RNA: mir-2807 microRNA precursor family
Organism: Bombyx mori
RNA sequence: UUAACUCGGAUUUGUGUAGAGUUGGAACGUUGGCCUACGUUUGCCGCUAGGGGCGUUGUUCUAACUGCAUACGAAUUUGAGUUA
Number, nucleotide and partner (000 for none) at each position: 001u000002u000003a000004a000005c000006u000007c000008g078009g077010a076011u075012u074013u073014g072015u071016g070017u000018a000019g000020a066021g065022u064023u063024g062025g061026a060027a059028c058029g057030u000031u000032g000033g000034c052035c051036u050037a000038c000039g047040u046041u000042u000043g000044c000045c000046g040047c039048u000049a000050g036051g035052g034053g000054c000055g000056u000057u029058g028059u027060u026061c025062u024063a023064a022065c021066u020067g000068c000069a000070u016071a015072c014073g013074a012075a011076u010077u009078u008079g000080a000081g000082u000083u000084a000